[Rfam]
Nucleotides: 065
Base pairs, nucleotide, nucleotide: 008029009028010027011026012025013024033058034057035056036055037054038053039052
Number, partner (000 for none) and nucleotide at each position: 001000u002000g003000u004000c005000u006000c007000c008029u009028c010027c011026a012025c013024c014000c015000u016000c017000c018000u019000c020000c021000u022000u023000u024013g025012g026011u027010g028009g029008a030000u031000u032000u033058g034057g035056c036055c037054c038053g039052g040000a041000a042000u043000c044000u045000u046000a047000c048000g049000a050000u051000c052039c053038c054037g055036g056035g057034c058033c059000u060000u061000u062000u063000u064000u065000u